[Rfam]
RNA sequence: ACAAAGUCAAUUCGAAGUUUCAAUGGCCCUGAAGUAAUGUCCAAUAUAUCUGGUUCCAGGGCCCUAAUGGGAAGAGGGAGAGGUUGGGUUUUAGUGGGUCUGGAUGUCCCGGUAUCCGGACAUCAAUCCCACACUCCCCAUUGCAAAGGUUUUUUGCAAUGGGCGUCUUUUUGAAGAUUUCCCCCUCUCCAC
Numbered sequence: 001a002c003a004a005a006g007u008c009a010a011u012u013c014g015a016a017g018u019u020u021c022a023a024u025g026g027c028c029c030u031g032a033a034g035u036a037a038u039g040u041c042c043a044a045u046a047u048a049u050c051u052g053g054u055u056c057c058a059g060g061g062c063c064c065u066a067a068u069g070g071g072a073a074g075a076g077g078g079a080g081a082g083g084u085u086g087g088g089u090u091u092u093a094g095u096g097g098g099u100c101u102g103g104a105u106g107u108c109c110c111g112g113u114a115u116c117c118g119g120a121c122a123u124c125a126a127u128c129c130c131a132c133a134c135u136c137c138c139c140a141u142u143g144c145a146a147a148g149g150u151u152u153u154u155u156g157c158a159a160u161g162g163g164c165g166u167c168u169u170u171u172u173g174a175a176g177a178u179u180u181c182c183c184c185c186u187c188u189c190c191a192c
Stems, first nucleotide, its partner, number of pairs: 025063006068191003079188005086182002094132005103124006110118003134165001136163003
About this RNA
This 192-nucleotide RNA sequence from Diaphorina citri belongs to the Rfam family "R2 RNA element". The literature on the family includes a 2004 paper in RNA by Ruschak et al., "Secondary structure models of the 3' untranslated regions of diverse R2 RNAs". NCBI's taxonomy places the organism under Eukaryota, Protostomia, Hexapoda, Insecta, Diaphorina. The match comes from Rfam's covariance-model search (40 bits).